[Rfam]
This 98-nucleotide RNA from Candidatus Nitrosacidicoccus tergens belongs to the Rfam family "TPP riboswitch aptamer (THI element)". From the family's description: Vitamin B(1) in its active form thiamin pyrophosphate (TPP) is an essential coenzyme that is synthesised by coupling of pyrimidine and thiazole moieties in bacteria. The previously detected thiamin-regulatory element, thi box was extended, resulting in a new, highly conserved RNA secondary structure, the THI element, which is widely distributed in eubacteria and also occurs in some archaea. Analysis of operon structures identified a large number of new candidate thiamin-regulated genes, mostly transporters, in various prokaryotic organisms. Lineage of the source: Bacteria > Pseudomonadati > Pseudomonadota > Gammaproteobacteria > Candidatus Nitrosacidicoccus. A reference for the family is Warner et al. (2014), "Validating fragment-based drug discovery for biological RNAs: lead fragments bind and remodel the TPP riboswitch specifically", Chem Biol. Gene Ontology term of the family: thiamine pyrophosphate binding.
RNA sequence: AUUUUUUGCUAGGGGUGUCGAAUGAAUUAUUCGGCUGAGAGAGUCCCUUUGAACCUGAUCCGGUUAAUACUGGCGUAGGAAAGCUGAUAGUUACUCAU
Numbered sequence: 001a002u003u004u005u006u007u008g009c010u011a012g013g014g015g016u017g018u019c020g021a022a023u024g025a026a027u028u029a030u031u032c033g034g035c036u037g038a039g040a041g042a043g044u045c046c047c048u049u050u051g052a053a054c055c056u057g058a059u060c061c062g063g064u065u066a067a068u069a070c071u072g073g074c075g076u077a078g079g080a081a082a083g084c085u086g087a088u089a090g091u092u093a094c095u096c097a098u
Base pairs, nucleotide, nucleotide: 006086008084009083010082011048012047013046014045016042017035018034019033020032021031022030023029054079055078056077057076060073061072062071063070